[Rfam]
RNA sequence: GACAAUAACUGAAUAUCUUUUCGUAUAUUUCCGAGGAUAGGCUCGGAAGUUUCUACGAGGUCACCGUAAUGAUCUAGCUACGAGAAGAAGAGACUUGGAA
Numbered sequence: 001g002a003c004a005a006u007a008a009c010u011g012a013a014u015a016u017c018u019u020u021u022c023g024u025a026u027a028u029u030u031c032c033g034a035g036g037a038u039a040g041g042c043u044c045g046g047a048a049g050u051u052u053c054u055a056c057g058a059g060g061u062c063a064c065c066g067u068a069a070u071g072a073u074c075u076a077g078c079u080a081c082g083a084g085a086a087g088a089a090g091a092g093a094c095u096u097g098g099a100a
Stems, first nucleotide, its partner, number of pairs: 018086008029048007058075006
Background:
A member of the RNA family "Purine riboswitch aptamer" from Paenibacillus pini, 100 nucleotides long. From the family's description: Riboswitches are metabolite binding domains within certain messenger RNAs that serve as precision sensors for their corresponding targets. Allosteric rearrangement of mRNA structure is mediated by ligand binding, and this results in modulation of gene expression. A class of riboswitches that selectively recognises guanine and becomes saturated at concentrations as low as 5 nM. In Bacillus subtilis, this mRNA motif is located on at least five separate transcriptional units that together encode 17 genes that are mostly involved in purine transport and purine nucleotide biosynthesis. The match comes from Rfam's covariance-model search (69 bits). NCBI's taxonomy places the organism under Bacteria, Bacillati, Bacillota, Caryophanales, Paenibacillus pini.